This 138-nucleotide sequence from Proteiniborus sp. DW1 belongs to the Rfam family "Ribosomal protein L20 leader".
It scores 75 bits against the family's covariance model.
The literature on the family includes a 1994 paper in Prog Nucleic Acid Res Mol Biol by Zengel and Lindahl, "Diverse mechanisms for regulating ribosomal protein synthesis in Escherichia coli".
The family's consensus secondary structure was predicted with CMfinder.
It is annotated as a cis-regulatory leader.
From the family's description: This family is a putative r-protein leader autoregulatory structure found in B. subtilis and other low-GC Gram-positive bacteria. It is located in the 5' untranslated regions of mRNAs encoding initiation factor 3 followed by ribosomal proteins L35 and L20 (infC-rpmI-rplT). A Rho-independent transcription terminator structure that is probably involved in regulation is included at the 3' end.
RNA sequence: AAAACAAAGUAGAAGUAUCCGCUUCUCACCUUAUAGCAUAGAGCUCAUAAGGUUAAUAUUGACGAUUUAUAAGUAUUGUUGUACUUUUUUGUCGUUUUUAAUGCGGAUAGUUUCUACUAUCCGCAUUAAUUUUAUUUA
Numbered sequence: 001a002a003a004a005c006a007a008a009g010u011a012g013a014a015g016u017a018u019c020c021g022c023u024u025c026u027c028a029c030c031u032u033a034u035a036g037c038a039u040a041g042a043g044c045u046c047a048u049a050a051g052g053u054u055a056a057u058a059u060u061g062a063c064g065a066u067u068u069a070u071a072a073g074u075a076u077u078g079u080u081g082u083a084c085u086u087u088u089u090u091g092u093c094g095u096u097u098u099u100a101a102u103g104c105g106g107a108u109a110g111u112u113u114c115u116a117c118u119a120u121c122c123g124c125a126u127u128a129a130u131u132u133u134a135u136u137u138a
Stems, first nucleotide, its partner, number of pairs: 011026006028053003033048002036044002102125010